[Rfam]
RNA sequence: AGUUGUCUUCAGGGCAGGGUGAAAGUCCCGACCGGUGGUGAGAGUCCACGACCCGCGUUUGCGGCUGAAUCCUAAUAGGAUACCGAUAGUUAAAGUCUAGAUGGAAGAAGACAGAU
Numbered sequence: 001a002g003u004u005g006u007c008u009u010c011a012g013g014g015c016a017g018g019g020u021g022a023a024a025g026u027c028c029c030g031a032c033c034g035g036u037g038g039u040g041a042g043a044g045u046c047c048a049c050g051a052c053c054c055g056c057g058u059u060u061g062c063g064g065c066u067g068a069a070u071c072c073u074a075a076u077a078g079g080a081u082a083c084c085g086a087u088a089g090u091u092a093a094a095g096u097c098u099a100g101a102u103g104g105a106a107g108a109a110g111a112c113a114g115a116u
Stems, first nucleotide, its partner, number of pairs: 003114008017029003031096002033085002035049004044083002053064002069081005087099003
This 116-nucleotide RNA sequence from Lactobacillus corticis belongs to the Rfam family "FMN riboswitch aptamer (RFN element)". The RFN element is a highly conserved domain that is found frequently in the 5'-untranslated regions of prokaryotic mRNAs that encode for flavin mononucleotide (FMN) biosynthesis and transport proteins.